Rfam assigns this 138-nucleotide sequence from Drosophila busckii to the family "Small nucleolar RNA psi18S-1377". The source organism's lineage runs through Eukaryota, Panarthropoda, Panorpida, Muscomorpha and Dorsilopha. The match comes from Rfam's covariance-model search (107 bits). psi18S-1377 is a member of the H/ACA class of snoRNA. This family is responsible for guiding the modification of uridines 1377 and 1279 to pseudouridine in Drosophila 18S rRNA.
RNA sequence: CCGUUCUUGUGUUAUUUGCUGAAUUUCUAAUCUCAUUCAGUGAUUGUCAAACAGAACGCAUAACAAACUCCAAGCUAGUAUUCCACAUUGUACAGUCUAUCAUAUGACUGAUACAUCACUAACCCGCUAGCUACAGUU
Numbered sequence: 001c002c003g004u005u006c007u008u009g010u011g012u013u014a015u016u017u018g019c020u021g022a023a024u025u026u027c028u029a030a031u032c033u034c035a036u037u038c039a040g041u042g043a044u045u046g047u048c049a050a051a052c053a054g055a056a057c058g059c060a061u062a063a064c065a066a067a068c069u070c071c072a073a074g075c076u077a078g079u080a081u082u083c084c085a086c087a088u089u090g091u092a093c094a095g096u097c098u099a100u101c102a103u104a105u106g107a108c109u110g111a112u113a114c115a116u117c118a119c120u121a122a123c124c125c126g127c128u129a130g131c132u133a134c135a136g137u138u
Base pairs, nucleotide, nucleotide: 002058003057004056005055006054007053010049011048016043017042018041019040020039021038022037089115090114091113094109095108096107097106